[Rfam]
RNA sequence: UGCAGCCCCGUCAAAUUCGAUCCCUGCCUCCUCCGUGGCGGGGACCGGCCAACCGGCUGCCACAGCAACUUCUGUGGUCCGUGAGCCCUCGUGUCCCCUUCCCGUGGGACCCUGGGGGAUAAAAUCAACGACCAGGGACACGG
Numbered sequence: 001u002g003c004a005g006c007c008c009c010g011u012c013a014a015a016u017u018c019g020a021u022c023c024c025u026g027c028c029u030c031c032u033c034c035g036u037g038g039c040g041g042g043g044a045c046c047g048g049c050c051a052a053c054c055g056g057c058u059g060c061c062a063c064a065g066c067a068a069c070u071u072c073u074g075u076g077g078u079c080c081g082u083g084a085g086c087c088c089u090c091g092u093g094u095c096c097c098c099u100u101c102c103c104g105u106g107g108g109a110c111c112c113u114g115g116g117g118g119a120u121a122a123a124a125u126c127a128a129c130g131a132c133c134a135g136g137g138a139c140a141c142g143g
Stems, first nucleotide, its partner, number of pairs: 002060004018047002021044008075134005086118005
RNA: Small nucleolar RNA SNORA5
Organism: Steatornis caripensis